[Rfam]
Shown here is a 272-nucleotide RNA from Cladophialophora carrionii, a member of the family "Fungal signal recognition particle RNA". A reference for the family is Wild et al. (2002), "Towards the structure of the mammalian signal recognition particle", Curr Opin Struct Biol. Gene Ontology terms of the family: signal recognition particle, endoplasmic reticulum targeting, signal recognition particle, plasma membrane targeting and SRP-dependent cotranslational protein targeting to membrane, signal sequence recognition. Lineage of the source: Eukaryota > Ascomycota > Chaetothyriomycetidae > Chaetothyriales > Cladophialophora. Pairs were carried over by alignment from the consensus structure, which is taken from published work. Rfam 15.1 lists 748 matches to the family in 741 species.
RNA sequence: UGACUGUCACGGUCGAAAAGUUAGGAGGUUACCUUGAGCUUGUGGACGUCGCUUCACACUCCCACUUGUUCAGUUGUGCCUUGCUCGGAAUUUCGGGUCGUUCUUCUACUCGUGUGUGUAAACCACGAUGCUAGUGAGCGUUAAGCAAUGGAAAUUACACUUGAGGGAAGCAAUUCUGCAGAGACAUUUCCACCCGGAGUUGGCGGCGUGAGAUUACACACUGGCAAGAUAUGCGAAGUUUCAGGCUCGAUGUGGGUGAUCAACUUUUUGUU
Dot-bracket structure: ((((.......))))..(((......(((((((.((((.(((..(((.((((..............(((.(((.((((.((((((((.(((((((((.(.(((..(((.(((((.((....)))))))...))).))).)(...)...(((((((....(((....(((....)))....)))..))))))))))))))))..))).)))))....))))))))))......)))).))).))).)))).....))))))).....)))...